[Rfam]
RNA: Small nucleolar RNA SNORA61
RNA sequence: ACCCUCUGGAUCCCUUUCCCAUCAGGUCUGCACACCGACCUGGGUGGUCGUAAAUGGAGGGAAAGGAACUGGAUGCGGGCCCGAGUGUCUGGUGUGGAGACAGCGGACCAGGCCCGGUCCUCACAAUC
Numbered sequence: 001a002c003c004c005u006c007u008g009g010a011u012c013c014c015u016u017u018c019c020c021a022u023c024a025g026g027u028c029u030g031c032a033c034a035c036c037g038a039c040c041u042g043g044g045u046g047g048u049c050g051u052a053a054a055u056g057g058a059g060g061g062a063a064a065g066g067a068a069c070u071g072g073a074u075g076c077g078g079g080c081c082c083g084a085g086u087g088u089c090u091g092g093u094g095u096g097g098a099g100a101c102a103g104c105g106g107a108c109c110a111g112g113c114c115c116g117g118u119c120c121u122c123a124c125a126a127u128c
Stems, first nucleotide, its partner, number of pairs: 003060005019047005025040004076116006089106003